[Rfam]
RNA sequence: AGGGUACAAGUUUGAGGCCAUAGCAGAAGUGCUCAUCGCACAGCCUGUCAGAUUCCGAUGCAUCUGUGAAUUCUGCC
Dot-bracket structure: ...............[[[....(((((((((.......))).]]]...(((((.(....).)))))....)))))).
Numbered sequence: 001a002g003g004g005u006a007c008a009a010g011u012u013u014g015a016g017g018c019c020a021u022a023g024c025a026g027a028a029g030u031g032c033u034c035a036u037c038g039c040a041c042a043g044c045c046u047g048u049c050a051g052a053u054u055c056c057g058a059u060g061c062a063u064c065u066g067u068g069a070a071u072u073c074u075g076c077c
Stems, first nucleotide, its partner, number of pairs: 016045003023076006029041003049066005055060001
Shown here is a 77-nucleotide RNA from Alligator mississippiensis, a member of the family "Mammalian CPEB3 ribozyme". Its family is annotated with RNA nuclease activity in the Gene Ontology. It scores 51 bits against the family's covariance model. Lineage of the source: Eukaryota > Eumetazoa > Dipnotetrapodomorpha > Alligatorinae > Alligator. For this family Rfam cites "A genomewide search for ribozymes reveals an HDV-like sequence in the human CPEB3 gene" (Salehi-Ashtiani et al., Science, 2006). The base pairs follow the family's consensus structure, which is taken from published work.